[Rfam]
RNA sequence: AUGUAAAUUAAAUAACGUCGUCGUAUAAAACUGAGAAUAAGGCUCAGAAGUUUCUACCAAGUUACCGUAAAUGACUUGACUACGAUUGAAUAGAUCAUUCUA
Numbered sequence: 001a002u003g004u005a006a007a008u009u010a011a012a013u014a015a016c017g018u019c020g021u022c023g024u025a026u027a028a029a030a031c032u033g034a035g036a037a038u039a040a041g042g043c044u045c046a047g048a049a050g051u052u053u054c055u056a057c058c059a060a061g062u063u064a065c066c067g068u069a070a071a072u073g074a075c076u077u078g079a080c081u082a083c084g085a086u087u088g089a090a091u092a093g094a095u096c097a098u099u100c101u102a
Stems, first nucleotide, its partner, number of pairs: 018088001020086006031047005058078007
RNA: Purine riboswitch aptamer